About this RNA: azaaromatic riboswitch aptamer (yjdF RNA): a 133-nucleotide sequence from Lachnospiraceae bacterium 5_1_57FAA. The source organism's lineage runs through Bacteria, Bacillati, Bacillota, Lachnospirales and Lachnospiraceae. The family's consensus secondary structure is taken from published work.
RNA sequence: AUCAGCAAAGAUAAAAACACAACGUAUGCUUAUGCAUACAGUCCGGUUGGUAGUCCGGGCGCGGCACUGUGCUAUUUGCGCGGGCUGUCAGUAACCUUCCUCCUUAGGUCGUCCAUUCUUUUGCUUAUGUUUU
Numbered sequence: 001a002u003c004a005g006c007a008a009a010g011a012u013a014a015a016a017a018c019a020c021a022a023c024g025u026a027u028g029c030u031u032a033u034g035c036a037u038a039c040a041g042u043c044c045g046g047u048u049g050g051u052a053g054u055c056c057g058g059g060c061g062c063g064g065c066a067c068u069g070u071g072c073u074a075u076u077u078g079c080g081c082g083g084g085c086u087g088u089c090a091g092u093a094a095c096c097u098u099c100c101u102c103c104u105u106a107g108g109u110c111g112u113c114c115a116u117u118c119u120u121u122u123g124c125u126u127a128u129g130u131u132u133u
Stems, first nucleotide, its partner, number of pairs: 004125003007121005041060006061088005099108003